[Rfam]
Bacterial RNase P class A: a 359-nucleotide RNA sequence from Aidingimonas halophila.
Rfam's curators write: Ribonuclease P (RNase P) is a ubiquitous endoribonuclease, found in archaea, bacteria and eukarya as well as chloroplasts and mitochondria.
Taxonomically the source falls in Aidingimonas (Bacteria, Pseudomonadota, Gammaproteobacteria, Oceanospirillales).

RNA sequence: GGAGUAGGCCAGACAGCCGCCGCCAACCCGAGGUUGGGGGAGGAAAGUCCGGGCUCCAAAGGGCAGGGUGCCAGGUAACGCCUGGGCGGCGCGAGCCGACGGCUAGUGCAGCAGAGAGUAGACCGCCUACGUCUCCCGAUUCCGGGAGGCCGGUAAGGGUGAAAGGGUGCGGUAAGAGCGCACCGCGCGCCUGGUAACAGAGCGUGGCACGGUAAACCCCACCCGGAGCAAGACCAAAUAGGAACCCGAUAGGCGUGGCCCGCGUCGGGUUCGGGUAGGUUGCUCGAGAGGUAUGGCGACAUGCCUCCUAGAUGAAUGGCUGUCUUAGACAGAACCCGGCUUAUCGGCCGACUCCCUUC
Numbered sequence: 001g002g003a004g005u006a007g008g009c010c011a012g013a014c015a016g017c018c019g020c021c022g023c024c025a026a027c028c029c030g031a032g033g034u035u036g037g038g039g040g041a042g043g044a045a046a047g048u049c050c051g052g053g054c055u056c057c058a059a060a061g062g063g064c065a066g067g068g069u070g071c072c073a074g075g076u077a078a079c080g081c082c083u084g085g086g087c088g089g090c091g092c093g094a095g096c097c098g099a100c101g102g103c104u105a106g107u108g109c110a111g112c113a114g115a116g117a118g119u120a121g122a123c124c125g126c127c128u129a130c131g132u133c134u135c136c137c138g139a140u141u142c143c144g145g146g147a148g149g150c151c152g153g154u155a156a157g158g159g160u161g162a163a164a165g166g167g168u169g170c171g172g173u174a175a176g177a178g179c180g181c182a183c184c185g186c187g188c189g190c191c192u193g194g195u196a197a198c199a200g201a202g203c204g205u206g207g208c209a210c211g212g213u214a215a216a217c218c219c220c221a222c223c224c225g226g227a228g229c230a231a232g233a234c235c236a237a238a239u240a241g242g243a244a245c246c247c248g249a250u251a252g253g254c255g256u257g258g259c260c261c262g263c264g265u266c267g268g269g270u271u272c273g274g275g276u277a278g279g280u281u282g283c284u285c286g287a288g289a290g291g292u293a294u295g296g297c298g299a300c301a302u303g304c305c306u307c308c309u310a311g312a313u314g315a316a317u318g319g320c321u322g323u324c325u326u327a328g329a330c331a332g333a334a335c336c337c338g339g340c341u342u343a344u345c346g347g348c349c350g351a352c353u354c355c356c357u358u359c
Stems, first nucleotide, its partner, number of pairs: 001355005007349004011344001012324007020040002023037006045342003049339005054228004061261004066224005071085005086100001087098004101219002106217002108213002123158002125154003132147004166184006185208001186206005191200003232281004242272006252266005288307008